[Rfam]
Nucleotides: 135
Stems, first nucleotide, its partner, number of pairs: 002043004007039002009036007017028001063129003068124003075116004081110002086102002
Number, partner (000 for none) and nucleotide at each position: 001000a002043g003042g004041c005040a006000a007039c008038c009036c010035c011034c012033u013032u014031g015030c016000g017028a018000c019000u020000a021000a022000a023000a024000a025000a026000g027000a028017u029000g030015g031014c032013a033012a034011g035010g036009g037000a038008g039007g040005u041004g042003u043002u044000a045000u046000a047000a048000a049000u050000g051000g052000a053000a054000a055000u056000c057000a058000a059000a060000u061000u062000u063129c064128u065127u066000u067000u068124g069123c070122u071000c072000u073000u074000c075116a076115g077114a078113u079000u080000u081110g082109c083000g084000g085000a086102g087101a088000u089000g090000g091000u092000u093000u094000u095000a096000g097000c098000c099000a100000u101087u102086u103000u104000c105000u106000g107000a108000a109082g110081c111000u112000u113078g114077u115076c116075u117000u118000g119000u120000a121000a122070a123069g124068c125000u126000c127065a128064a129063g130000c131000a132000c133000a134000u135000u